[Rfam]
Rfam assigns this 38-nucleotide RNA from Clostridium sp. C105KSO13 to the family "Selenocysteine insertion sequence 4".
Gene Ontology term of the family: selenocysteine incorporation.
RNA sequence: GGUACCAGUACUCGUUGCGGUGCAACGAUAGCUAAGGA
Numbered sequence: 001g002g003u004a005c006c007a008g009u010a011c012u013c014g015u016u017g018c019g020g021u022g023c024a025a026c027g028a029u030a031g032c033u034a035a036g037g038a
Stems, first nucleotide, its partner, number of pairs: 005031001013027006
It is annotated as a cis-regulatory element.
The family has 24 seed sequences and 436 matches in Rfam 15.1.